[Rfam]
Shown here is a 264-nucleotide sequence from Rhinopomastus cyanomelas, a member of the family "Small Cajal body specific RNA 6".
RNA sequence: GGUCUGUGAUGAGCAGUAAAAGGUCUGAUGAUCCUAAGACUGGCACUUCCGUGGCCCUUUGUCCCAGCAGUCUCCCUCUGCAGCCACAGCACAGCAAUGGUGUGGCUGGCUGGGUGUUUGCUGACAGAGUGGGGUGUUCCCAGCCCAUGUCAACCUGAGGCGUGGGAGCUGUGGCUGGGAUCUGCAUCCAACAGUCUGGCUGGAAGAGCUCUGGGGCUUGGAUUGCCACGACAGGACACAUGAUCUGGCUUGUCUGCUGAGACC
Numbered sequence: 001g002g003u004c005u006g007u008g009a010u011g012a013g014c015a016g017u018a019a020a021a022g023g024u025c026u027g028a029u030g031a032u033c034c035u036a037a038g039a040c041u042g043g044c045a046c047u048u049c050c051g052u053g054g055c056c057c058u059u060u061g062u063c064c065c066a067g068c069a070g071u072c073u074c075c076c077u078c079u080g081c082a083g084c085c086a087c088a089g090c091a092c093a094g095c096a097a098u099g100g101u102g103u104g105g106c107u108g109g110c111u112g113g114g115u116g117u118u119u120g121c122u123g124a125c126a127g128a129g130u131g132g133g134g135u136g137u138u139c140c141c142a143g144c145c146c147a148u149g150u151c152a153a154c155c156u157g158a159g160g161c162g163u164g165g166g167a168g169c170u171g172u173g174g175c176u177g178g179g180a181u182c183u184g185c186a187u188c189c190a191a192c193a194g195u196c197u198g199g200c201u202g203g204a205a206g207a208g209c210u211c212u213g214g215g216g217c218u219u220g221g222a223u224u225g226c227c228a229c230g231a232c233a234g235g236a237c238a239c240a241u242g243a244u245c246u247g248g249c250u251u252g253u254c255u256g257c258u259g260a261g262a263c264c
Base pairs, nucleotide, nucleotide: 001264002263003262004261037246038245039244041242048222049221050220051219053217061209062208064206065123066122067121068120069119070118081108082107083106084105085104086103087102088101131189133188134187135186136185137184146173147172148171149170151168154165155164
Taxonomically the source falls in Rhinopomastus (Eukaryota, Eumetazoa, Archosauria, Neognathae). Rfam classes the family as a small Cajal body RNA. The base pairs follow the family's consensus structure, which is taken from published work. U88 is small Cajal body specific RNA (scaRNA). scaRNAs are a novel class of small nuclear RNAs which localise to the Cajal bodies. U88 is found associated with both fibrillarin and Gar1p and co-localises with coilin in Cajal bodies. On this family, see Darzacq et al., EMBO J 2002: "Cajal body-specific small nuclear RNAs: a novel class of 2'-O-methylation and pseudouridylation guide RNAs".